[Rfam]
RNA sequence: AUUAGGUUAGAUAAAAUACCUCAUAUAAUCUUGGGAAUAUGGCCCAUAAGUUUCUACCCGAUAACCGUAAAUUAUUGGACUAUGAGGGAAAAGUAUAAUUUU
Numbered sequence: 001a002u003u004a005g006g007u008u009a010g011a012u013a014a015a016a017u018a019c020c021u022c023a024u025a026u027a028a029u030c031u032u033g034g035g036a037a038u039a040u041g042g043c044c045c046a047u048a049a050g051u052u053u054c055u056a057c058c059c060g061a062u063a064a065c066c067g068u069a070a071a072u073u074a075u076u077g078g079a080c081u082a083u084g085a086g087g088g089a090a091a092a093g094u095a096u097a098a099u100u101u102u
Stems, first nucleotide, its partner, number of pairs: 019087007029049001032046004058078007